[Rfam]
RNA sequence: AGACUGUAGUGGUCAUUUGGUUGAAGGCGCUUAAAAUUCUCCUUCCACUAAUCCCAAUUCCAUAAGAACCCCCGAGGCGCGCCCACUGCAAAUGCCGCGGUGAUCACCUAUCCGCUUGGGUAACCAGUGUUGAUUAGGUGGUCCUAGGAAAUGGAGAGUAACCUUCAGGGAGGUUUCACUCUGCAGAGUCUCUCCACCGUCGCAUGGUGUGGUGGAUUACGUUGACUUGGGGACUUGGGCUAGUGGGAAGAGAUGGAGAUUGUCGACUCCAAUUUUU
Numbered sequence: 001a002g003a004c005u006g007u008a009g010u011g012g013u014c015a016u017u018u019g020g021u022u023g024a025a026g027g028c029g030c031u032u033a034a035a036a037u038u039c040u041c042c043u044u045c046c047a048c049u050a051a052u053c054c055c056a057a058u059u060c061c062a063u064a065a066g067a068a069c070c071c072c073c074g075a076g077g078c079g080c081g082c083c084c085a086c087u088g089c090a091a092a093u094g095c096c097g098c099g100g101u102g103a104u105c106a107c108c109u110a111u112c113c114g115c116u117u118g119g120g121u122a123a124c125c126a127g128u129g130u131u132g133a134u135u136a137g138g139u140g141g142u143c144c145u146a147g148g149a150a151a152u153g154g155a156g157a158g159u160a161a162c163c164u165u166c167a168g169g170g171a172g173g174u175u176u177c178a179c180u181c182u183g184c185a186g187a188g189u190c191u192c193u194c195c196a197c198c199g200u201c202g203c204a205u206g207g208u209g210u211g212g213u214g215g216a217u218u219a220c221g222u223u224g225a226c227u228u229g230g231g232g233a234c235u236u237g238g239g240c241u242a243g244u245g246g247g248a249a250g251a252g253a254u255g256g257a258g259a260u261u262g263u264c265g266a267c268u269c270c271a272a273u274u275u276u277u
Stems, first nucleotide, its partner, number of pairs: 002014003019274005025268002028265002032262003037257003040251002043248008052239002060066001071230002074228003078224001079222003083215008092205004097200004103142008113129004118125002144148001152196007163188003170181003
Dot-bracket structure: .(((.......)))....(((((.((.((..(((..(((((.((((((((.((......(.....)....((.(((.((((.((((((((.((((.((((..((((((((..((((.((....)))))).....)))))))).(...)...(((((((....(((....(((......)))....))).))))))))))).))))..))))))))....))).).))))).......)).)))))))).))...)))..))).)).)).)))))...

The family of this 277-nucleotide RNA sequence from Hypoxylon sp. CO27-5 is "Fungal signal recognition particle RNA". Rfam classes the family as a non-coding RNA gene. Pairs were carried over by alignment from the consensus structure, which is taken from published work. It scores 126 bits against the family's covariance model. For this family Rfam cites "Towards the structure of the mammalian signal recognition particle" (Wild et al., Curr Opin Struct Biol, 2002). NCBI's taxonomy places the organism under Eukaryota, leotiomyceta, Sordariomycetes, Hypoxylaceae, Hypoxylon.